[Rfam]
RNA sequence: CACUCGAUUCUUAAAGGUAAAUAUCAGCUGGUAAUUCUGGGCGAUAUACGUACUUUGAAACACUCGGAAUUUCAGUUGGUAUCGACUUUUCUGGAUUG
Numbered sequence: 001c002a003c004u005c006g007a008u009u010c011u012u013a014a015a016g017g018u019a020a021a022u023a024u025c026a027g028c029u030g031g032u033a034a035u036u037c038u039g040g041g042c043g044a045u046a047u048a049c050g051u052a053c054u055u056u057g058a059a060a061c062a063c064u065c066g067g068a069a070u071u072u073c074a075g076u077u078g079g080u081a082u083c084g085a086c087u088u089u090u091c092u093g094g095a096u097u098g
Stems, first nucleotide, its partner, number of pairs: 013090006021082011034070008

The family of this 98-nucleotide RNA from Scaptodrosophila lebanonensis is "mir-283 microRNA precursor family". The family is grouped with related families in Rfam's "mir-216 clan". It scores 98 bits against the family's covariance model. Pairs were carried over by alignment from the consensus structure, which was predicted with WAR. The family has 11 seed sequences and 98 matches in Rfam 15.1. For this family Rfam cites "Identification of microRNAs expressed in two mosquito vectors, Aedes albopictus and Culex quinquefasciatus" (Skalsky et al., BMC Genomics, 2010).